[Rfam]
The family of this 68-nucleotide RNA from Enterobacter sp. 638 is "Salmonella enterica sRNA STnc40".
It is one of the family's seed sequences.
By type it is a small RNA.

RNA sequence: GUCGUGCCACGGCCGUUUAAGCUAAGCACAGAGUAAAUCGAAAAGGCGCAGAGAUCUGCGCCUUUUUU
Numbered sequence: 001g002u003c004g005u006g007c008c009a010c011g012g013c014c015g016u017u018u019a020a021g022c023u024a025a026g027c028a029c030a031g032a033g034u035a036a037a038u039c040g041a042a043a044a045g046g047c048g049c050a051g052a053g054a055u056c057u058g059c060g061c062c063u064u065u066u067u068u
Base pairs, nucleotide, nucleotide: 002019004017006013007012041066042065043064044063045062046061047060048059049058050057051056